[Rfam]
The family of this 74-nucleotide RNA sequence from Profundibacterium mesophilum is "Singlet oxygen resistance RNA X".
Taxonomically the source falls in Profundibacterium mesophilum (Bacteria, Pseudomonadati, Rhodobacterales, Profundibacterium).
A search with the family's covariance model found it, with a score of 54 bits.
Gene Ontology term of the family: response to photooxidative stress.
RNA sequence: CCCCCGCAUGCGUCCGGUCAUAGGCGCAUAUGUUCCCUGUUGGACUGACCCGGCCCCUGCGCCGGGUCUUUUUU
Numbered sequence: 001c002c003c004c005c006g007c008a009u010g011c012g013u014c015c016g017g018u019c020a021u022a023g024g025c026g027c028a029u030a031u032g033u034u035c036c037c038u039g040u041u042g043g044a045c046u047g048a049c050c051c052g053g054c055c056c057c058u059g060c061g062c063c064g065g066g067u068c069u070u071u072u073u074u
Stems, first nucleotide, its partner, number of pairs: 008029007047068008